[Rfam]
RNA sequence: CAGGCUGUUACCGCAAAAACCUCUCGUAACAAAAGCCGGGUGAGUCGGUAACGGAAACCCG
Numbered sequence: 001c002a003g004g005c006u007g008u009u010a011c012c013g014c015a016a017a018a019a020c021c022u023c024u025c026g027u028a029a030c031a032a033a034a035g036c037c038g039g040g041u042g043a044g045u046c047g048g049u050a051a052c053g054g055a056a057a058c059c060c061g
Base pairs, nucleotide, nucleotide: 006031007030008029009028010027011026013025016022037061038060039059040058041057045054046053047052
Rfam assigns this 61-nucleotide sequence from Pseudomonas sp. FeS53a to the family "Pseudomonas sRNA P36". The source organism's lineage runs through Bacteria, Pseudomonadati, Pseudomonadota, Pseudomonadales and Pseudomonas. A reference for the family is Livny et al. (2006), "Identification of 17 Pseudomonas aeruginosa sRNAs and prediction of sRNA-encoding genes in 10 diverse pathogens using the bioinformatic tool sRNAPredict2", Nucleic Acids Res. The family's RNA type in Rfam is small RNA.